[Rfam]
RNA sequence: CUCACCAUAGCUCAGUUGGAAGAGCGAAGGACUGUAAUGCACAACUUGUUAUCCUUAGGUCCCCCGUUCGAACCGGGGUGGUGAGA
Numbered sequence: 001c002u003c004a005c006c007a008u009a010g011c012u013c014a015g016u017u018g019g020a021a022g023a024g025c026g027a028a029g030g031a032c033u034g035u036a037a038u039g040c041a042c043a044a045c046u047u048g049u050u051a052u053c054c055u056u057a058g059g060u061c062c063c064c065c066g067u068u069c070g071a072a073c074c075g076g077g078g079u080g081g082u083g084a085g086a
Stems, first nucleotide, its partner, number of pairs: 001085007010025004027056005062078005